A member of the RNA family "ZMP/ZTP riboswitch aptamer (pfl RNA motif)" from Janibacter alkaliphilus, 77 nucleotides long. Its family is annotated with one-carbon metabolic process and regulation of purine nucleotide biosynthetic process in the Gene Ontology. The literature on the family includes a 2015 paper in Nat Struct Mol Biol by Jones and Ferre-D'Amare, "Recognition of the bacterial alarmone ZMP through long-distance association of two RNA subdomains". The organism belongs to Janibacter, within Bacteria.
RNA sequence: CUGGCGGCACACGACUGGCGCAGGUGGGGCACCACCGGGGAGUGAGUCCGUGCGCAUCGCCCGCCUGGGUGCGCCGA
Number, nucleotide and partner (000 for none) at each position: 001c000002u000003g051004g000005c000006g048007g047008c046009a000010c044011a043012c042013g000014a000015c039016u038017g065018g064019c063020g062021c000022a000023g000024g035025u034026g033027g032028g000029g000030c000031a000032c027033c026034a025035c024036c000037g000038g016039g015040g000041a000042g012043u011044g010045a000046g008047u007048c006049c000050g000051u003052g000053c000054g072055c071056a070057u069058c068059g000060c000061c000062c020063g019064c018065c017066u000067g000068g058069g057070u056071g055072c054073g000074c000075c000076g000077a000